[Rfam]
RNA sequence: GGGUCGACUGCGCCGAAUCCGUGCUGGCCGCUGGGCAGUUCGGAACCGGGGACCCACACACGCACCACCGGGGUGAAUCGGGCCGUGUCCGCACGGCCCGUAGGGCACCUUCCGUUCGCCCGAACCCGACAGCUAACCCGGUAGGCGGUCCACGGAAGAAGG
Numbered sequence: 001g002g003g004u005c006g007a008c009u010g011c012g013c014c015g016a017a018u019c020c021g022u023g024c025u026g027g028c029c030g031c032u033g034g035g036c037a038g039u040u041c042g043g044a045a046c047c048g049g050g051g052a053c054c055c056a057c058a059c060a061c062g063c064a065c066c067a068c069c070g071g072g073g074u075g076a077a078u079c080g081g082g083c084c085g086u087g088u089c090c091g092c093a094c095g096g097c098c099c100g101u102a103g104g105g106c107a108c109c110u111u112c113c114g115u116u117c118g119c120c121c122g123a124a125c126c127c128g129a130c131a132g133c134u135a136a137c138c139c140g141g142u143a144g145g146c147g148g149u150c151c152a153c154g155g156a157a158g159a160a161g162g
Stems, first nucleotide, its partner, number of pairs: 011147004018044003045142006055070001071127003079100007103121004
The family of this 162-nucleotide RNA from Streptomyces genisteinicus is "c-di-AMP riboswitch aptamer (ydaO/yuaA leader)". A reference for the family is Barrick et al. (2004), "New RNA motifs suggest an expanded scope for riboswitches in bacterial genetic control", Proc Natl Acad Sci U S A.